[Rfam]
Nucleotides: 086
Stems, first nucleotide, its partner, number of pairs: 001025002005022004010017002037046003047086003056079003062075002
Number, partner (000 for none) and nucleotide at each position: 001025u002024a003000a004000c005022c006021c007020u008019g009000g010017c011016c012000g013000c014000g015000a016011g017010g018000a019008c020007a021006g022005g023000c024002u025001g026000a027000a028000c029000g030000u031000a032000c033000a034000g035000a036000a037046g038045u039044c040000a041000g042000c043000a044039g045038a046037c047086g048085c049084c050000a051000u052000a053000g054000u055000a056079c057078g058077c059000u060000u061000u062075c063074g064000u065000g066000u067000u068000g069000c070000a071000a072000c073000a074063c075062g076000a077058g078057c079056g080000g081000a082000a083000g084049g085048g086047c
A member of the RNA family "Group II catalytic intron D1-D4-1" from Paenibacillus monticola, 86 nucleotides long.
The source organism's lineage runs through Bacteria, Bacillati, Bacilli, Paenibacillaceae and Paenibacillus.
Rfam's curators write: Group II introns are found in rRNA, tRNA and mRNA of organelles in fungi, plants and protists, and also in mRNA in bacteria.
Gene Ontology term of the family: Group II intron splicing.
A reference for the family is Bonen and Vogel (2001), "The ins and outs of group II introns", Trends Genet.
The family has 237 seed sequences and 2,508 matches in Rfam 15.1.
The pairing is the family consensus, mapped onto this sequence.